[Rfam]
RNA sequence: GUCUUGUUAGCUCAGUCGGUAGAGCAUUUCACUUUUAAUGAAGGGGUCGCUGGUUCGAGUCCAGCACAGGACA
Numbered sequence: 001g002u003c004u005u006g007u008u009a010g011c012u013c014a015g016u017c018g019g020u021a022g023a024g025c026a027u028u029u030c031a032c033u034u035u036u037a038a039u040g041a042a043g044g045g046g047u048c049g050c051u052g053g054u055u056c057g058a059g060u061c062c063a064g065c066a067c068a069g070g071a072c073a
Stems, first nucleotide, its partner, number of pairs: 001072007010025004027043005049065005